[Rfam]
RNA: Small nucleolar RNA snoR31/Z110/Z27
Organism: Setaria italica
RNA sequence: UGUAUCAAAGGAUGAAACCUUGACACAAUCUUAGGACACCUUCUGACACAGUGCUUGCACUGUGAAUGAGAAGGCAAUUAUUUUCUGAUGAUACU
Numbered sequence: 001u002g003u004a005u006c007a008a009a010g011g012a013u014g015a016a017a018c019c020u021u022g023a024c025a026c027a028a029u030c031u032u033a034g035g036a037c038a039c040c041u042u043c044u045g046a047c048a049c050a051g052u053g054c055u056u057g058c059a060c061u062g063u064g065a066a067u068g069a070g071a072a073g074g075c076a077a078u079u080a081u082u083u084u085c086u087g088a089u090g091a092u093a094c095u
Stems, first nucleotide, its partner, number of pairs: 002094006044050002
Dot-bracket structure: .((((((....................................((...))......................................)))))).